Description: Rfam assigns this 74-nucleotide RNA sequence from Trifolium pratense to the family "MIR5272 microRNA precursor family". Rfam links the family to the GO terms RISC complex and miRNA-mediated post-transcriptional gene silencing.
RNA sequence: GUUAAUGUAAAUUGAUUUACGUUUGGAUAUACUCGUAUAAAAGUGAUUCUUAUAAACUGAUGUUGUUUGGCUAG
Numbered sequence: 001g002u003u004a005a006u007g008u009a010a011a012u013u014g015a016u017u018u019a020c021g022u023u024u025g026g027a028u029a030u031a032c033u034c035g036u037a038u039a040a041a042a043g044u045g046a047u048u049c050u051u052a053u054a055a056a057c058u059g060a061u062g063u064u065g066u067u068u069g070g071c072u073a074g
Stems, first nucleotide, its partner, number of pairs: 011061004016056003021053002025049004030045004
The base pairs follow the family's consensus structure, which was predicted with RNAalifold. The organism belongs to Trifolium, within Eukaryota. The match comes from Rfam's covariance-model search (68 bits).